Rfam assigns this 132-nucleotide RNA from Aspergillus chevalieri to the family "U4 spliceosomal RNA". A search with the family's covariance model found it, with a score of 98 bits.
RNA sequence: AUCCUAGUGCAAGGGUUUUACACAUGUCAGUGAGGAUUCGUCCGAGACUGUGUUUUUGCUAGUUGAAAACUACCUAGUUUGACCGCUCUGCCUGGUCUUCGGAUCGGACAGGAAUUUUUGAAACAUUAUUGC
Numbered sequence: 001a002u003c004c005u006a007g008u009g010c011a012a013g014g015g016u017u018u019u020a021c022a023c024a025u026g027u028c029a030g031u032g033a034g035g036a037u038u039c040g041u042c043c044g045a046g047a048c049u050g051u052g053u054u055u056u057u058g059c060u061a062g063u064u065g066a067a068a069a070c071u072a073c074c075u076a077g078u079u080u081g082a083c084c085g086c087u088c089u090g091c092c093u094g095g096u097c098u099u100c101g102g103a104u105c106g107g108a109c110a111g112g113a114a115u116u117u118u119u120g121a122a123a124c125a126u127u128a129u130u131g132c
Stems, first nucleotide, its partner, number of pairs: 020053005026048003034043003087112004092107006